[Rfam]
RNA sequence: CCCGUGUUUCGCCACGGAAUCCUACCGGAGCGUGCAUUGGGAGUAACCCCUUUGUGCGGAGCCUCUGGGAGAAACGUAGUCCUUGGUGAAGUAUGCCACAAGAACGAACCGCGAGGGGAGUUCAAGUCUGCCAGCCUCAGGCGGAGGGAUGC
Numbered sequence: 001c002c003c004g005u006g007u008u009u010c011g012c013c014a015c016g017g018a019a020u021c022c023u024a025c026c027g028g029a030g031c032g033u034g035c036a037u038u039g040g041g042a043g044u045a046a047c048c049c050c051u052u053u054g055u056g057c058g059g060a061g062c063c064u065c066u067g068g069g070a071g072a073a074a075c076g077u078a079g080u081c082c083u084u085g086g087u088g089a090a091g092u093a094u095g096c097c098a099c100a101a102g103a104a105c106g107a108a109c110c111g112c113g114a115g116g117g118g119a120g121u122u123c124a125a126g127u128c129u130g131c132c133a134g135c136c137u138c139a140g141g142c143g144g145a146g147g148g149a150u151g152c
Base pairs, nucleotide, nucleotide: 002017003016004015005014006013026067027066028065029064030063031058032057033056034055035054036053039050040049041048084098085097086096087095088094102123103122104121105120109116110115127145128144129143130142131141132140
Rfam assigns this 152-nucleotide RNA sequence from Thiohalocapsa sp. PB-PSB1 to the family "Group II catalytic intron D1-D4-7". Gene Ontology term of the family: Group II intron splicing. NCBI's taxonomy places the organism under Bacteria, Gammaproteobacteria, Chromatiales, Chromatiaceae, Thiohalocapsa. About the family: Group II introns are found in rRNA, tRNA and mRNA of organelles in fungi, plants and protists, and also in mRNA in bacteria. A reference for the family is Bonen and Vogel (2001), "The ins and outs of group II introns", Trends Genet. The match comes from Rfam's covariance-model search (93 bits).